[Rfam]
skipping-rope RNA: an 87-nucleotide sequence. Pairs were carried over by alignment from the consensus structure, which is taken from published work. By type it is a small RNA.
RNA sequence: GAUUUACUGAGGGCGGAACUGGCAGCCGCCGCCGGAUAGUCGAAAGACUUGAUUAGGAGAUGCAGGAUAGUCACCCUGCCUUAAAUC
Numbered sequence: 001g002a003u004u005u006a007c008u009g010a011g012g013g014c015g016g017a018a019c020u021g022g023c024a025g026c027c028g029c030c031g032c033c034g035g036a037u038a039g040u041c042g043a044a045a046g047a048c049u050u051g052a053u054u055a056g057g058a059g060a061u062g063c064a065g066g067a068u069a070g071u072c073a074c075c076c077u078g079c080c081u082u083a084a085a086u087c
Base pairs, nucleotide, nucleotide: 001087002086003085004084005083006082009080012030013029014028015027016026020073021072022071023070032057038049039048040047041046062079063078064077065076066075